[Rfam]
RNA sequence: GGGCCGGCUUUAGCUCAGCGGUUCCUUCGCCAGCGUCUUGUAAACCUCUUUGCACCGUCAGGGCGGUUCGAGACCCGCGGGCGCUCUCCGGCCCUUUU
Numbered sequence: 001g002g003g004c005c006g007g008c009u010u011u012a013g014c015u016c017a018g019c020g021g022u023u024c025c026u027u028c029g030c031c032a033g034c035g036u037c038u039u040g041u042a043a044a045c046c047u048c049u050u051u052g053c054a055c056c057g058u059c060a061g062g063g064c065g066g067u068u069c070g071a072g073a074c075c076c077g078c079g080g081g082c083g084c085u086c087u088c089c090g091g092c093c094c095u096u097u098u
Stems, first nucleotide, its partner, number of pairs: 002093006013082004018078004026072004
Dot-bracket structure: .((((((.....((((.((((....((((.......................................))))..)))))))).....)))))).....
The record is a 98-nucleotide sequence from Propithecus coquereli, which matches "Vault RNA" in Rfam. The base pairs follow the family's consensus structure, which is taken from published work. The match comes from Rfam's covariance-model search (86 bits). The family has 73 seed sequences and 2,873 matches in Rfam 15.1. The literature on the family includes a 2009 paper in Mol Biol Evol by Stadler et al., "Evolution of Vault RNAs". The organism belongs to Propithecus, within Eukaryota.